Shown here is a 101-nucleotide RNA sequence from Dipodomys ordii, a member of the family "G-CSF factor stem-loop destabilising element (SLDE)". NCBI's taxonomy places the organism under Eukaryota, Chordata, Mammalia, Rodentia, Dipodomys. This family represents the granulocyte colony-stimulating factor stem-loop destabilising element (G-CSF SLDE). The family's RNA type in Rfam is cis-regulatory element.
[Rfam]
RNA sequence: CAGUGAGUCCUCUCCCCCCUGGGGACCCUGGGGAGUACCAGGAGGUCUCCCACGUGGGAGACCAUACAUUCCUGUUUAAUAUUUAAACAUCAGUGUUCUCA
Numbered sequence: 001c002a003g004u005g006a007g008u009c010c011u012c013u014c015c016c017c018c019c020u021g022g023g024g025a026c027c028c029u030g031g032g033g034a035g036u037a038c039c040a041g042g043a044g045g046u047c048u049c050c051c052a053c054g055u056g057g058g059a060g061a062c063c064a065u066a067c068a069u070u071c072c073u074g075u076u077u078a079a080u081a082u083u084u085a086a087a088c089a090u091c092a093g094u095g096u097u098c099u100c101a
Stems, first nucleotide, its partner, number of pairs: 005028001007026005045062007073089007